RNA: mir-17 microRNA precursor family
RNA sequence: UGGGCAGUACUAAAGUGCUUUUAGUGCAGGUAGUGAUUAUUGUCUACUGCCCUGAGAGCACUGACAGUACUUCCAG
Numbered sequence: 001u002g003g004g005c006a007g008u009a010c011u012a013a014a015g016u017g018c019u020u021u022u023a024g025u026g027c028a029g030g031u032a033g034u035g036a037u038u039a040u041u042g043u044c045u046a047c048u049g050c051c052c053u054g055a056g057a058g059c060a061c062u063g064a065c066a067g068u069a070c071u072u073c074c075a076g
Stems, first nucleotide, its partner, number of pairs: 004073001006071002009068003014062011026050002029048005